The family of this 169-nucleotide RNA sequence from Faecalibaculum rodentium is "Group II catalytic intron D1-D4-3".
[Rfam]
RNA sequence: AUGACUGUAAGGGGGUUCGUGAAAGAAGCGUGUAUCAAAGUUCCGAACCUACGAACAGAAAUCGGAUAUAAGGCUGUGGCGGCGGGAGAGGGCGCCGAUGUGUCUUAACCCAACAGGCAGACGUAGCCAAAGCAGUAAAUCAGGAGGUCAUGGAACGAAAGAAGUGCAC
Number, nucleotide and partner (000 for none) at each position: 001a016002u015003g000004a000005c012006u011007g000008u000009a000010a000011g006012g005013g000014g000015g002016u001017u000018c000019g000020u000021g000022a000023a000024a000025g000026a000027a000028g169029c000030g167031u166032g165033u000034a000035u162036c161037a000038a000039a000040g156041u155042u154043c153044c152045g151046a000047a148048c147049c146050u145051a000052c000053g000054a000055a000056c000057a000058g000059a000060a000061a000062u144063c143064g000065g141066a140067u139068a000069u000070a000071a000072g000073g136074c135075u134076g000077u132078g000079g000080c000081g128082g127083c126084g111085g110086g109087a000088g000089a000090g105091g104092g103093c102094g000095c000096c000097g000098a000099u000100g000101u000102g093103u092104c091105u090106u000107a000108a000109c086110c085111c084112a000113a000114c000115a000116g000117g000118c000119a000120g000121a000122c000123g000124u000125a000126g083127c082128c081129a000130a000131a000132g077133c000134a075135g074136u073137a000138a000139a067140u066141c065142a000143g063144g062145a050146g049147g048148u047149c000150a000151u045152g044153g043154a042155a041156c040157g000158a000159a000160a000161g036162a035163a000164g000165u032166g031167c030168a000169c028

Rfam describes the family as follows. Group II introns are found in rRNA, tRNA and mRNA of organelles in fungi, plants and protists, and also in mRNA in bacteria.